Rfam assigns this 69-nucleotide RNA to the family "DUF805 RNA". The family's RNA type in Rfam is cis-regulatory element.
RNA sequence: UAAAAAAGGAGUCUAAGAACCUUUCAAAAAAAUAAGGCGGAACCGAAAAGCCAAAUGAGUAGGAUAUUU
Numbered sequence: 001u002a003a004a005a006a007a008g009g010a011g012u013c014u015a016a017g018a019a020c021c022u023u024u025c026a027a028a029a030a031a032a033u034a035a036g037g038c039g040g041a042a043c044c045g046a047a048a049a050g051c052c053a054a055a056u057g058a059g060u061a062g063g064a065u066a067u068u069u
Stems, first nucleotide, its partner, number of pairs: 006023004036052003043063002